[Rfam]
RNA sequence: ACACGACGAAAGGAGGUGAUCCGGAAGUGGUUUCUUUUCGGAUGCGUGAGGUGACUGCGGGCUAGAGGCCUGCUGUCGCACUCUGUGCAGUGGCAGGUUUUCUGCCGCACUCCAAUGCAGUCACCCGACCCGUGGGCCGCCGGUGGUCCGACCGGCUUCCUCCGUCCCGUACGGAGGAAACAGGCCCACGGGUCGUUCCGC
Numbered sequence: 001a002c003a004c005g006a007c008g009a010a011a012g013g014a015g016g017u018g019a020u021c022c023g024g025a026a027g028u029g030g031u032u033u034c035u036u037u038u039c040g041g042a043u044g045c046g047u048g049a050g051g052u053g054a055c056u057g058c059g060g061g062c063u064a065g066a067g068g069c070c071u072g073c074u075g076u077c078g079c080a081c082u083c084u085g086u087g088c089a090g091u092g093g094c095a096g097g098u099u100u101u102c103u104g105c106c107g108c109a110c111u112c113c114a115a116u117g118c119a120g121u122c123a124c125c126c127g128a129c130c131c132g133u134g135g136g137c138c139g140c141c142g143g144u145g146g147u148c149c150g151a152c153c154g155g156c157u158u159c160c161u162c163c164g165u166c167c168c169g170u171a172c173g174g175a176g177g178a179a180a181c182a183g184g185c186c187c188a189c190g191g192g193u194c195g196u197u198c199c200g201c
Stems, first nucleotide, its partner, number of pairs: 016058003020054001060108001061106001063104004068098004073093003126195013139156006
RNA: Actinobacteria sRNA Ms_IGR-5